Ribosomal protein L10 leader: a 150-nucleotide RNA from Bacilli bacterium VT-13-104. It is annotated as a cis-regulatory leader. This family is a putative r-protein leader autoregulatory structure found in B. subtilis and other low-GC Gram-positive bacteria. It is located in the 5' untranslated regions of mRNAs encoding ribosomal proteins L10 and L12 (rplJ-rplL). A Rho-independent transcription terminator structure that is probably involved in regulation is included at the 3' end.
RNA sequence: AUAAAAUAAUAUGUUAUACCGUAGACAGUAGGGGCUAUAUAAAGCUUAAUGAUCCUACCGAGGUUUUUAUAAACAAAUUUUCUGGAAUGGAUAAUUUACGUUUGUAAUAAAAAGCCCUCAUGUCUACAUGAGGGCUUUUUCGAUAUGAUC
Number, nucleotide and partner (000 for none) at each position: 001a000002u000003a000004a000005a000006a000007u000008a000009a000010u000011a000012u000013g000014u000015u000016a000017u000018a000019c000020c000021g000022u000023a000024g000025a000026c000027a000028g058029u057030a056031g055032g054033g053034g045035c044036u043037a000038u000039a000040u000041a000042a000043a036044g035045c034046u000047u000048a000049a000050u000051g000052a000053u033054c032055c031056u030057a029058c028059c000060g000061a000062g000063g000064u000065u000066u000067u000068u000069a000070u000071a000072a000073a000074c000075a000076a000077a000078u000079u000080u000081u000082c000083u000084g000085g000086a000087a000088u000089g000090g000091a000092u000093a000094a000095u000096u000097u000098a000099c000100g000101u000102u000103u000104g000105u000106a000107a000108u000109a000110a000111a000112a000113a000114g135115c134116c133117c132118u131119c130120a129121u128122g127123u000124c000125u000126a000127c122128a121129u120130g119131a118132g117133g116134g115135c114136u000137u000138u000139u000140u000141c000142g000143a000144u000145a000146u000147g000148a000149u000150c000